[Rfam]
RNA sequence: UCUGGCUGUGAUGAUUCACUUGCCCUCACUGCAAAUGUAUUUCAGUGAUGAUACUGAAUAUGUCUUGCUGAGUCAGG
Numbered sequence: 001u002c003u004g005g006c007u008g009u010g011a012u013g014a015u016u017c018a019c020u021u022g023c024c025c026u027c028a029c030u031g032c033a034a035a036u037g038u039a040u041u042u043c044a045g046u047g048a049u050g051a052u053a054c055u056g057a058a059u060a061u062g063u064c065u066u067g068c069u070g071a072g073u074c075a076g077g
Base pairs, nucleotide, nucleotide: 001077002076003075004074005073006072